[Rfam]
RNA: mir-9256 microRNA precursor family
Organism: Pipistrellus kuhlii
RNA sequence: GUAUACACUGAGUGGCCAGAUUAUUAUGAUCUCUGAACACACAAUAGUCUGGCCACUCAGUGUGUAU
Numbered sequence: 001g002u003a004u005a006c007a008c009u010g011a012g013u014g015g016c017c018a019g020a021u022u023a024u025u026a027u028g029a030u031c032u033c034u035g036a037a038c039a040c041a042c043a044a045u046a047g048u049c050u051g052g053c054c055a056c057u058c059a060g061u062g063u064g065u066a067u
Base pairs, nucleotide, nucleotide: 004064005063006062007061008060009059010058011057012056013055014054015053016052017051019049020048021047022046023045024044025043027041028040